[Rfam]
RNA sequence: UUAGCUUCAUUUGUUCUAUGAACAGUGUUGUAGCUAGGUUACUCUAUUCUAGUGGCAUAUUUUUGUGGUGAAGCAAUAAAAAUUGUUGCCCUCGCUAUCCGGUGCUUCUUGCUAUGUUGCAUUUGGACGUUGGGUAACUACAUUU
Numbered sequence: 001u002u003a004g005c006u007u008c009a010u011u012u013g014u015u016c017u018a019u020g021a022a023c024a025g026u027g028u029u030g031u032a033g034c035u036a037g038g039u040u041a042c043u044c045u046a047u048u049c050u051a052g053u054g055g056c057a058u059a060u061u062u063u064u065g066u067g068g069u070g071a072a073g074c075a076a077u078a079a080a081a082a083u084u085g086u087u088g089c090c091c092u093c094g095c096u097a098u099c100c101g102g103u104g105c106u107u108c109u110u111g112c113u114a115u116g117u118u119g120c121a122u123u124u125g126g127a128c129g130u131u132g133g134g135u136a137a138c139u140a141c142a143u144u145u
Stems, first nucleotide, its partner, number of pairs: 001076002004074002008070004017065002020062002027060001029057003033053002036050003085138007093129002098127005108116001
Background:
A member of the RNA family "Small nucleolar RNA snoR136" from Papaver nudicaule, 145 nucleotides long. Rfam classes the family as an H/ACA-box small nucleolar RNA. The match comes from Rfam's covariance-model search (60 bits). The source organism's lineage runs through Eukaryota, Embryophyta, Papaveraceae, Papaveroideae and Papaver. Gene Ontology terms of the family: nucleolus and RNA processing.